[Rfam]
RNA: Molybdenum/Tungsten riboswitch aptamer (Moco RNA motif)
Nucleotides: 131
Stems, first nucleotide, its partner, number of pairs: 012116005019054005025048005034040002056070005073098009083088001099108002
Number, partner (000 for none) and nucleotide at each position: 001000a002000u003000a004000u005000u006000u007000c008000u009000a010000a011000a012116u013115c014114u015113c016112c017000a018000a019054g020053c021052c022051u023050a024000u025048u026047a027046a028045c029044c030000u031000a032000a033000a034040g035039a036000g037000c038000u039035u040034c041000c042000a043000u044029g045028g046027u047026u048025a049000u050023u051022g052021g053020g054019c055000c056070a057069g058068g059067g060066u061000u062000u063000u064000a065000a066060a067059c068058c069057c070056u071000c072000a073098g074097g075096g076095u077094a078093u079092g080091u081090u082000g083088g084000g085000a086000a087000a088083c089000g090081g091080a092079c093078a094077u095076g096075c097074c098073u099108u100107c101000a102000c103000a104000u105000u106000u107100g108099a109000a110000a111000a112016g113015g114014a115013g116012g117000a118000g119000u120000u121000g122000c123000g124000u125000g126000u127000u128000a129000u130000a131000c